[Rfam]
RNA: c-di-GMP-I riboswitch aptamer
RNA sequence: UACCCGAACAGGCAACCUCGUCGAGUGGCGAGGACGCAAAGCCAGGGGCCUCCCGUCGGAGGUUGCCCAGCCGCCGAA
Numbered sequence: 001u002a003c004c005c006g007a008a009c010a011g012g013c014a015a016c017c018u019c020g021u022c023g024a025g026u027g028g029c030g031a032g033g034a035c036g037c038a039a040a041g042c043c044a045g046g047g048g049c050c051u052c053c054c055g056u057c058g059g060a061g062g063u064u065g066c067c068c069a070g071c072c073g074c075c076g077a078a
Base pairs, nucleotide, nucleotide: 012037013036017032018031019030020029021028022027041071042070045068046067047066048063049062050061051060052059053058